Background:
This 90-nucleotide sequence from Pomatostomus ruficeps belongs to the Rfam family "NoRC associated RNA, pRNA". A reference for the family is Mayer et al. (2008), "The structure of NoRC-associated RNA is crucial for targeting the chromatin remodelling complex NoRC to the nucleolus", EMBO Rep. The source organism's lineage runs through Eukaryota, Opisthokonta, Eumetazoa, Dinosauria and Pomatostomus. Its family is annotated with chromatin remodeling in the Gene Ontology.
RNA sequence: UGAGUGGGGGUCUCGCUGGGGCCAUGUCCCUCGGUCACCCAUCUCUGGGGUCCCUGGGAGGUUCUGGGGAUCCCACCCUGACCCCUCUGU
Numbered sequence: 001u002g003a004g005u006g007g008g009g010g011u012c013u014c015g016c017u018g019g020g021g022c023c024a025u026g027u028c029c030c031u032c033g034g035u036c037a038c039c040c041a042u043c044u045c046u047g048g049g050g051u052c053c054c055u056g057g058g059a060g061g062u063u064c065u066g067g068g069g070a071u072c073c074c075a076c077c078c079u080g081a082c083c084c085c086u087c088u089g090u
Stems, first nucleotide, its partner, number of pairs: 004087001006085001009084002013081001019079003028069003034062003038058003
Dot-bracket structure: ...(.(..((..(.....(((......(((...(((.(((...............))).)))....))).......))).).))).)...